This 77-nucleotide RNA from Ophiophagus hannah belongs to the Rfam family "mir-202 microRNA precursor family". Rfam's curators put it in the seed alignment. For this family Rfam cites "Identification of hundreds of conserved and nonconserved human microRNAs" (Bentwich et al., Nat Genet, 2005).

RNA sequence: UCGUUCCUUUUUCCUAUGCAUAUACUUCUUUGAUAGGUCGAGUUUAAAGAGGCAUAAGGCAUGGGAAAAUGGGGCGA
Numbered sequence: 001u002c003g004u005u006c007c008u009u010u011u012u013c014c015u016a017u018g019c020a021u022a023u024a025c026u027u028c029u030u031u032g033a034u035a036g037g038u039c040g041a042g043u044u045u046a047a048a049g050a051g052g053c054a055u056a057a058g059g060c061a062u063g064g065g066a067a068a069a070u071g072g073g074g075c076g077a
Base pairs, nucleotide, nucleotide: 010068011067012066013065014064015063016062017061018060019059021056022055023054025052026051027050028049029048030047031046032045

Its family is annotated with RISC complex and miRNA-mediated post-transcriptional gene silencing in the Gene Ontology.